[Rfam]
RNA sequence: UAGGGGGGUCGGGGUUUGGAGCCCCUCCCCGAGCUCAGGGUAAUUCUUAAGGUGGAGGGGCA
Numbered sequence: 001u002a003g004g005g006g007g008g009u010c011g012g013g014g015u016u017u018g019g020a021g022c023c024c025c026u027c028c029c030c031g032a033g034c035u036c037a038g039g040g041u042a043a044u045u046c047u048u049a050a051g052g053u054g055g056a057g058g059g060g061c062a
Base pairs, nucleotide, nucleotide: 008041009040010039012036013035014034015033016031018029019028022060023059024058025057026056027055
Dot-bracket structure: .......[[[.[[[[[.[[..((((((]].].]]]]..]]].............))))))..
The family of this 62-nucleotide sequence from Carlito syrichta is "Gag/pol translational readthrough site". NCBI's taxonomy places the organism under Eukaryota, Teleostomi, Eutheria, Primates, Carlito. A reference for the family is ten Dam et al. (1990), "RNA pseudoknots: translational frameshifting and readthrough on viral RNAs", Virus Genes. It is annotated as a cis-regulatory element. The family has 8 seed sequences and 3,368 matches in Rfam 15.1. The match comes from Rfam's covariance-model search (69 bits).